[Rfam]
mir-216 microRNA precursor family: a 76-nucleotide RNA sequence from Electrophorus electricus. The base pairs follow the family's consensus structure, which was predicted with WAR.
RNA sequence: UGAUGGCAUAAUCUCAGCUGGCAACUGUGAGUGCAUGGGCCAUCAUCUCACAGGUGCCGCUGGGGUUGCGCCAAAC
Numbered sequence: 001u002g003a004u005g006g007c008a009u010a011a012u013c014u015c016a017g018c019u020g021g022c023a024a025c026u027g028u029g030a031g032u033g034c035a036u037g038g039g040c041c042a043u044c045a046u047c048u049c050a051c052a053g054g055u056g057c058c059g060c061u062g063g064g065g066u067u068g069c070g071c072c073a074a075a076c
Base pairs, nucleotide, nucleotide: 004073005072006071007070009068010067011066012065013064014063015062016061017060020058021057022056026052027051028050029049030048031047